Rfam assigns this 83-nucleotide sequence from Cardinalis cardinalis to the family "NoRC associated RNA, pRNA". Taxonomically the source falls in Cardinalis (Eukaryota, Vertebrata, Euteleostomi, Telluraves). Rfam classes the family as a non-coding RNA gene. The match comes from Rfam's covariance-model search (34 bits). On this family, see Mayer et al., EMBO Rep 2008: "The structure of NoRC-associated RNA is crucial for targeting the chromatin remodelling complex NoRC to the nucleolus".

RNA sequence: CUUUGGGGUCACUUUGGGGUCAGGGGUCCCGGCUGGGCUGGGCAGGAAUGGGGGACGGGGACCCCCAAACCUGAGCCAAAGUG
Number, nucleotide and partner (000 for none) at each position: 001c000002u000003u000004u080005g000006g000007g077008g076009u000010c075011a000012c000013u000014u000015u000016g000017g072018g071019g070020u069021c000022a000023g000024g000025g000026g062027u061028c060029c058030c057031g000032g000033c051034u050035g049036g000037g000038c000039u000040g000041g000042g000043c000044a000045g000046g000047a000048a000049u035050g034051g033052g000053g000054g000055a000056c000057g030058g029059g000060g028061a027062c026063c000064c000065c000066c000067a000068a000069a020070c019071c018072u017073g000074a000075g010076c008077c007078a000079a000080a004081g000082u000083g000